[Rfam]
RNA sequence: CCGUUCUCAACGGGGUGCUUCAUUUGAGGCUGAGAGAAACCCGUAGAACCUGAUCUGAUUAAUCACAGCGUAGGGAUUUGAGAAAGCGAGUAAA
Dot-bracket structure: .....(((((((((.((((((....)))))......)..)))).....((((..(((........)))..))))...)))))............
Numbered sequence: 001c002c003g004u005u006c007u008c009a010a011c012g013g014g015g016u017g018c019u020u021c022a023u024u025u026g027a028g029g030c031u032g033a034g035a036g037a038a039a040c041c042c043g044u045a046g047a048a049c050c051u052g053a054u055c056u057g058a059u060u061a062a063u064c065a066c067a068g069c070g071u072a073g074g075g076a077u078u079u080g081a082g083a084a085a086g087c088g089a090g091u092a093a094a
Stems, first nucleotide, its partner, number of pairs: 006082005011043004016037001017030005049074004055068003
This 94-nucleotide RNA sequence from Pasteurella bettyae belongs to the Rfam family "TPP riboswitch aptamer (THI element)".
A search with the family's covariance model found it, with a score of 68 bits.
The organism belongs to Pasteurella bettyae, within Bacteria.
The family's consensus secondary structure is taken from published work.